[Rfam]
RNA sequence: GUCGGUUUUGAUACAGACCCACGUAUGCGAGCAAUUUUAGUAAAGCAGUCUUCAGUUAAGCGUAACGCUGACUGACCUCCUUCUUGAGUGCCUCAUAGUAAUCCCUGUUGACAAACCUCGUGCCCUAUGCGGCUUAUCUACAAUAUUGAAGGAUAGACACAUGUCUAACAAAAUGACUGGUUUAGUAAAAUGGUUCAACGCUGAGAAAGGUUUCGGCUUUAUCUCUCCAGCUGACGGCAGCAAAGACGUGUUCGUACACUUCUCUGCAAUCCAGAACCAGGGUUUCAAAACUCUGGAAGAAGGCCAGAAAGUUGAGUUCUCUAUCGAGAACGGCCAGAAAGGCCCUGCAGCUGCAAACGUUACUGCGCUGUAAGUGAUGCCUGCUUCGUUGUCAGCGAAUCGGUUAAACCGGUUCUGUUAACAACGAAAUACAAAAAACCCGCCUCUGGCGGGUUUUUUGCU
Numbered sequence: 001g002u003c004g005g006u007u008u009u010g011a012u013a014c015a016g017a018c019c020c021a022c023g024u025a026u027g028c029g030a031g032c033a034a035u036u037u038u039a040g041u042a043a044a045g046c047a048g049u050c051u052u053c054a055g056u057u058a059a060g061c062g063u064a065a066c067g068c069u070g071a072c073u074g075a076c077c078u079c080c081u082u083c084u085u086g087a088g089u090g091c092c093u094c095a096u097a098g099u100a101a102u103c104c105c106u107g108u109u110g111a112c113a114a115a116c117c118u119c120g121u122g123c124c125c126u127a128u129g130c131g132g133c134u135u136a137u138c139u140a141c142a143a144u145a146u147u148g149a150a151g152g153a154u155a156g157a158c159a160c161a162u163g164u165c166u167a168a169c170a171a172a173a174u175g176a177c178u179g180g181u182u183u184a185g186u187a188a189a190a191u192g193g194u195u196c197a198a199c200g201c202u203g204a205g206a207a208a209g210g211u212u213u214c215g216g217c218u219u220u221a222u223c224u225c226u227c228c229a230g231c232u233g234a235c236g237g238c239a240g241c242a243a244a245g246a247c248g249u250g251u252u253c254g255u256a257c258a259c260u261u262c263u264c265u266g267c268a269a270u271c272c273a274g275a276a277c278c279a280g281g282g283u284u285u286c287a288a289a290a291c292u293c294u295g296g297a298a299g300a301a302g303g304c305c306a307g308a309a310a311g312u313u314g315a316g317u318u319c320u321c322u323a324u325c326g327a328g329a330a331c332g333g334c335c336a337g338a339a340a341g342g343c344c345c346u347g348c349a350g351c352u353g354c355a356a357a358c359g360u361u362a363c364u365g366c367g368c369u370g371u372a373a374g375u376g377a378u379g380c381c382u383g384c385u386u387c388g389u390u391g392u393c394a395g396c397g398a399a400u401c402g403g404u405u406a407a408a409c410c411g412g413u414u415c416u417g418u419u420a421a422c423a424a425c426g427a428a429a430u431a432c433a434a435a436a437a438a439c440c441c442g443c444c445u446c447u448g449g450c451g452g453g454u455u456u457u458u459u460g461c462u
Stems, first nucleotide, its partner, number of pairs: 004019005026229002030226002044220002047218004052210002061205001063203002066200002069197003075194003080163001082161001085159002091151001093149003098112002101109001122133003165180003232326003236322002245253002258312004263308004267303001270297006332345002347371004351365001353363001355361001375426002378423002433459012